[Rfam]
The record is an 82-nucleotide sequence from Denticeps clupeoides, which matches "mir-128 microRNA precursor family" in Rfam.
RNA sequence: GAGUGGCUGAAUAUGGGGCCGGGACACUGUCUGAGAGGCGCUACGAAUCUCACAGUGAACCGGUCUCUUUUGCAGUUCCUCA
Numbered sequence: 001g002a003g004u005g006g007c008u009g010a011a012u013a014u015g016g017g018g019c020c021g022g023g024a025c026a027c028u029g030u031c032u033g034a035g036a037g038g039c040g041c042u043a044c045g046a047a048u049c050u051c052a053c054a055g056u057g058a059a060c061c062g063g064u065c066u067c068u069u070u071u072g073c074a075g076u077u078c079c080u081c082a
Stems, first nucleotide, its partner, number of pairs: 006076004015067007025057006033051003